Rfam assigns this 72-nucleotide sequence from Desulfofarcimen acetoxidans to the family "tRNA".
The family's RNA type in Rfam is transfer RNA.
The family's consensus secondary structure is taken from published work.

Nucleotides: 072
Base pairs, nucleotide, nucleotide: 001071002070003069004068005067006066007065010024011023012022013021026042027041028040029039030038048064049063050062051061052060
Number, partner (000 for none) and nucleotide at each position: 001071g002070g003069g004068c005067g006066g007065g008000u009000a010024g011023u012022u013021c014000a015000g016000u017000g018000g019000u020000a021013g022012a023011a024010c025000g026042c027041u028040u029039g030038c031000u032000c033000g034000a035000c036000a037000c038030g039029c040028a041027a042026g043000a044000g045000g046000u047000c048064g049063u050062u051061g052060g053000u054000u055000c056000g057000a058000u059000a060052c061051c062050a063049a064048u065007c066006c067005c068004g069003c070002c071001c072000a